[Rfam]
Nucleotides: 287
Base pairs, nucleotide, nucleotide: 001287002286003285005283006282007281008280009279010277011276012256013255014254015253016252020035021034022033023032024031040274041273042272044271045270046269047268048267049193050192051191052190054223055222056221057220058219059218061189062188063187064186065185066079067078068077069076070075080093081092082091083090084089094184095183099181100180101179115169116168117167118164119163120162121161122160123159124158125157136147137146197239198238199237200236206230207229208228209227
Number, partner (000 for none) and nucleotide at each position: 001287g002286c003285a004000a005283g006282c007281u008280a009279a010277a011276g012256a013255c014254a015253g016252u017000u018000g019000c020035u021034g022033g023032u024031u025000a026000u027000u028000u029000u030000u031024a032023a033022c034021u035020a036000a037000g038000g039000a040274a041273a042272c043000u044271c045270c046269a047268u048267c049193c050192a051191u052190c053000a054223c055222a056221c057220a058219g059218a060000a061189c062188u063187a064186u065185a066079a067078u068077g069076u070075u071000g072000a073000a074000a075070g076069a077068c078067a079066u080093a081092u082091g083090c084089u085000g086000a087000g088000a089084a090083g091082u092081a093080u094184g095183a096000c097000u098000c099181u100180g101179g102000a103000g104000c105000a106000g107000a108000a109000a110000c111000g112000a113000c114000a115169c116168g117167u118164c119163u120162u121161u122160u123159a124158a125157u126000g127000a128000a129000u130000g131000a132000a133000u134000a135000u136147g137146a138000u139000a140000g141000u142000u143000u144000a145000a146137u147136c148000u149000u150000g151000a152000u153000u154000g155000a156000c157125a158124u159123u160122a161121a162120a163119a164118g165000g166000a167117a168116c169115g170000g171000u172000g173000a174000a175000a176000c177000g178000g179101c180100c181099a182000u183095u184094c185065u186064a187063u188062a189061g190052g191051g192050u193049g194000c195000a196000a197239g198238g199237a200236c201000a202000a203000g204000u205000u206230u207229g208228c209227u210000u211000u212000u213000g214000a215000u216000c217000c218059u219058c220057u221056g222055u223054g224000g225000u226000a227209g228208g229207c230206a231000a232000g233000g234000u235000a236200g237199u238198c239197c240000g241000c242000g243000u244000a245000g246000a247000u248000g249000a250000a251000u252016a253015c254014u255013g256012u257000a258000g259000a260000a261000a262000c263000a264000g265000a266000a267048g268047g269046u270045g271044g272042g273041u274040u275000a276011u277010u278000c279009u280008u281007a282006g283005c284000a285003u286002g287001c